[Rfam]
MIR1435 microRNA precursor family: a 200-nucleotide RNA from Dichanthelium oligosanthes. Its family is annotated with miRNA-mediated post-transcriptional gene silencing and RISC complex in the Gene Ontology.

RNA sequence: AAGAUUUAUCUUAAGUCAAACUAUUUUAAGUUUGACCAAGCUUAUACAAAAAGGUACCAAUAUUUAGAACACCAAAAAAUUAUUUUAUGAAAGUAUAUUUCACGAUAAAUCUACUGAUAUUUAUUUGGUGUACUAGAUAUUAGUAUAUUUUUAUAUAAACUUAGUCAAACUUUGAAUAGUUUGACUUAAGACAAAGCUAA
Dot-bracket structure: ....(((.(.((((((((((((((((....(((((.........((.(((((..(((.(((((((((....(((((...............................................)))))....))))))))).)))..))))).)).........)))))....)))))))))))))))).).))).....
Numbered sequence: 001a002a003g004a005u006u007u008a009u010c011u012u013a014a015g016u017c018a019a020a021c022u023a024u025u026u027u028a029a030g031u032u033u034g035a036c037c038a039a040g041c042u043u044a045u046a047c048a049a050a051a052a053g054g055u056a057c058c059a060a061u062a063u064u065u066a067g068a069a070c071a072c073c074a075a076a077a078a079a080u081u082a083u084u085u086u087a088u089g090a091a092a093g094u095a096u097a098u099u100u101c102a103c104g105a106u107a108a109a110u111c112u113a114c115u116g117a118u119a120u121u122u123a124u125u126u127g128g129u130g131u132a133c134u135a136g137a138u139a140u141u142a143g144u145a146u147a148u149u150u151u152u153a154u155a156u157a158a159a160c161u162u163a164g165u166c167a168a169a170c171u172u173u174g175a176a177u178a179g180u181u182u183g184a185c186u187u188a189a190g191a192c193a194a195a196g197c198u199a200a
Stems, first nucleotide, its partner, number of pairs: 005195003009191001011189016031169005045155002048152005055145003059141009072128005